[Rfam]
RNA sequence: GGCCGAGUGUGGGUGAAUAAAAUACCAGUAAUGGGAAUAAGCCCGCUUGCCUUCGUACAAGUUUCUAGCACUUGGCCGCCUGAGC
Numbered sequence: 001g002g003c004c005g006a007g008u009g010u011g012g013g014u015g016a017a018u019a020a021a022a023u024a025c026c027a028g029u030a031a032u033g034g035g036a037a038u039a040a041g042c043c044c045g046c047u048u049g050c051c052u053u054c055g056u057a058c059a060a061g062u063u064u065c066u067a068g069c070a071c072u073u074g075g076c077c078g079c080c081u082g083a084g085c
Stems, first nucleotide, its partner, number of pairs: 001077009011044004016038001025034003045062005
sRNA-Xcc1: an 85-nucleotide sequence from Arsenophonus nasoniae. The family's consensus secondary structure was predicted with RNAalifold. It scores 62 bits against the family's covariance model.